[Rfam]
This 101-nucleotide RNA sequence from Cardiobacterium hominis belongs to the Rfam family "Aggregatibacter sRNA 22". A reference for the family is Oogai et al. (2017), "Small RNA repertoires and their intraspecies variation in Aggregatibacter actinomycetemcomitans", DNA Res. The family's consensus secondary structure was predicted with RNAfold. By type it is a small RNA.
RNA sequence: ACUUCCCCACAAAAUGCGGUCAAGCAUUUUGAACGUCGGCUCUGCCGACGGGAUCAAAGAGCCGAGAAAUCCAGUAAAGGAUUUCGAGUAAAACCGACCGC
Numbered sequence: 001a002c003u004u005c006c007c008c009a010c011a012a013a014a015u016g017c018g019g020u021c022a023a024g025c026a027u028u029u030u031g032a033a034c035g036u037c038g039g040c041u042c043u044g045c046c047g048a049c050g051g052g053a054u055c056a057a058a059g060a061g062c063c064g065a066g067a068a069a070u071c072c073a074g075u076a077a078a079g080g081a082u083u084u085c086g087a088g089u090a091a092a093a094c095c096g097a098c099c100g101c
Base pairs, nucleotide, nucleotide: 010031011030012029013028014027015026016025017024034050035049036048037047038046039045040044051063052062054060055059066085067084068083069082070081071080072079088098089097